[Rfam]
RNA sequence: CCUCCCUUGCUACCUGGGCAAAGAGGCGUCUGGUUGGUGGCGCGGCUCUUCAAUCUAGCAGGGAGAGAGAAAUGAGCCCUCGUUCAUCCCAGUGCAGUAUCCUGGGCGGUGGCUGUCGCUGGUUCAUGCAGGGGGCACACGG
Numbered sequence: 001c002c003u004c005c006c007u008u009g010c011u012a013c014c015u016g017g018g019c020a021a022a023g024a025g026g027c028g029u030c031u032g033g034u035u036g037g038u039g040g041c042g043c044g045g046c047u048c049u050u051c052a053a054u055c056u057a058g059c060a061g062g063g064a065g066a067g068a069g070a071a072a073u074g075a076g077c078c079c080u081c082g083u084u085c086a087u088c089c090c091a092g093u094g095c096a097g098u099a100u101c102c103u104g105g106g107c108g109g110u111g112g113c114u115g116u117c118g119c120u121g122g123u124u125c126a127u128g129c130a131g132g133g134g135g136c137a138c139a140c141g142g
Stems, first nucleotide, its partner, number of pairs: 002065006016055002021050003026043005082136004097129002103126003107122001109120001112117001
Dot-bracket structure: .((((((........((...(((..(((((........)))))....)))...))....))))))................((((...........((....(((.(.(..(....)..).).))).))...))))......

A member of the RNA family "Small nucleolar RNA SNORA48" from Gopherus agassizii, 142 nucleotides long.
The snoRNA ACA 48 has been identified to guide pseudouridylation of the residue U3797 in the 28S rRNA subunit.
The match comes from Rfam's covariance-model search (56 bits).
NCBI's taxonomy places the organism under Eukaryota, Metazoa, Euteleostomi, Tetrapoda, Gopherus.
Rfam classes the family as an H/ACA-box small nucleolar RNA.